[Rfam]
RNA: DUF3577 RNA
RNA sequence: CGGAUCUUAUAAGGCAGCACGCUGCCGAAAUCGUCUGCAAUCCGGGUGCCGCACAUAUGCGGUGACGACCAUUCUCUUCUACCGUCGCAUGACGGCUCUCU
Numbered sequence: 001c002g003g004a005u006c007u008u009a010u011a012a013g014g015c016a017g018c019a020c021g022c023u024g025c026c027g028a029a030a031u032c033g034u035c036u037g038c039a040a041u042c043c044g045g046g047u048g049c050c051g052c053a054c055a056u057a058u059g060c061g062g063u064g065a066c067g068a069c070c071a072u073u074c075u076c077u078u079c080u081a082c083c084g085u086c087g088c089a090u091g092a093c094g095g096c097u098c099u100c101u
Stems, first nucleotide, its partner, number of pairs: 013026005031068005049062005082095004